[Rfam]
RNA sequence: GCAGAGAGUAGAAGCGUUCAGCGGCCGGUUCACCCGCCGCCCGGAAAUUGCUCUUGUG
Numbered sequence: 001g002c003a004g005a006g007a008g009u010a011g012a013a014g015c016g017u018u019c020a021g022c023g024g025c026c027g028g029u030u031c032a033c034c035c036g037c038c039g040c041c042c043g044g045a046a047a048u049u050g051c052u053c054u055u056g057u058g
Base pairs, nucleotide, nucleotide: 005054006053007052008051009050010049015043018045019044021040022039023038024037025036027034

The family of this 58-nucleotide RNA from Variovorax terrae is "Xanthine riboswitch aptamer (NMT1 RNA)". The base pairs follow the family's consensus structure, which is taken from published work. The source organism's lineage runs through Bacteria, Pseudomonadota, Burkholderiales, Comamonadaceae and Variovorax. Its family is annotated with purine nucleobase binding in the Gene Ontology.